[Rfam]
RNA: Eukaryotic large subunit ribosomal RNA, nucleotides 421 to 667
Organism: Salix koriyanagi
RNA sequence: UGGAUGGGGGGCCGGCGAUGCGCCCGGUCGGAUGUGGAGCGGCGACAGCCGGUCCGCCCGAUCGGCUCGGGGCGUGGACCGAUGCGGAUCGCGGUGGCGGCCUAAGCCCGGGCCUUUGAAAGCGCCUGUGGAGAUGCCGUCGCUGCGAUCGUGGGACUGCAGCGCGCGCCGUCACGGCGUGCCCCGGCACAUGCGCGCUCCGGGCAUCGGCUCGUGGGCUCCCCAUUCGUCCCGUCUUGAAACACGG
Numbered sequence: 001u002g003g004a005u006g007g008g009g010g011g012c013c014g015g016c017g018a019u020g021c022g023c024c025c026g027g028u029c030g031g032a033u034g035u036g037g038a039g040c041g042g043c044g045a046c047a048g049c050c051g052g053u054c055c056g057c058c059c060g061a062u063c064g065g066c067u068c069g070g071g072g073c074g075u076g077g078a079c080c081g082a083u084g085c086g087g088a089u090c091g092c093g094g095u096g097g098c099g100g101c102c103u104a105a106g107c108c109c110g111g112g113c114c115u116u117u118g119a120a121a122g123c124g125c126c127u128g129u130g131g132a133g134a135u136g137c138c139g140u141c142g143c144u145g146c147g148a149u150c151g152u153g154g155g156a157c158u159g160c161a162g163c164g165c166g167c168g169c170c171g172u173c174a175c176g177g178c179g180u181g182c183c184c185c186g187g188c189a190c191a192u193g194c195g196c197g198c199u200c201c202g203g204g205c206a207u208c209g210g211c212u213c214g215u216g217g218g219c220u221c222c223c224c225a226u227u228c229g230u231c232c233c234g235u236c237u238u239g240a241a242a243c244a245c246g247g
Base pairs, nucleotide, nucleotide: 001229002228003227004226005225006224007223008222009221010220011219012218018075021074022073023072024071025070027068079210080209081208082207083206084205085204232247233246234245235244